The record is an 87-nucleotide RNA from Punica granatum, which matches "Small nucleolar RNA R16" in Rfam. On this family, see Galardi et al., Mol Cell Biol 2002: "Purified box C/D snoRNPs are able to reproduce site-specific 2'-O-methylation of target RNA in vitro". NCBI's taxonomy places the organism under Eukaryota, Viridiplantae, Pentapetalae, malvids, Punica. Rfam links the family to the GO terms RNA processing and nucleolus. Pairs were carried over by alignment from the consensus structure, which was predicted with PFOLD. The family's RNA type in Rfam is C/D-box small nucleolar RNA.
[Rfam]
RNA sequence: UGUGGUAGAUGAUGAACGUUUAUAUCUUAUUCUACACUCAGAUUGAUCAGUGUUGACUACAAACUCCGCUUAUUACCUGAUGCCAUG
Numbered sequence: 001u002g003u004g005g006u007a008g009a010u011g012a013u014g015a016a017c018g019u020u021u022a023u024a025u026c027u028u029a030u031u032c033u034a035c036a037c038u039c040a041g042a043u044u045g046a047u048c049a050g051u052g053u054u055g056a057c058u059a060c061a062a063a064c065u066c067c068g069c070u071u072a073u074u075a076c077c078u079g080a081u082g083c084c085a086u087g
Stems, first nucleotide, its partner, number of pairs: 003085005